[Rfam]
RNA sequence: AAAAGCGCGUGUGACUGGCGUAACGCGGCGAACCGCGGGGGAGCACGGAACGCUUAUACGGCCGUACGCCUGGGCAGAGGUA
Numbered sequence: 001a002a003a004a005g006c007g008c009g010u011g012u013g014a015c016u017g018g019c020g021u022a023a024c025g026c027g028g029c030g031a032a033c034c035g036c037g038g039g040g041g042a043g044c045a046c047g048g049a050a051c052g053c054u055u056a057u058a059c060g061g062c063c064g065u066a067c068g069c070c071u072g073g074g075c076a077g078a079g080g081u082a
Base pairs, nucleotide, nucleotide: 008047009046010045011044012043015040016039017070018069019068020067021066025036026035027034028033059077061075062074063073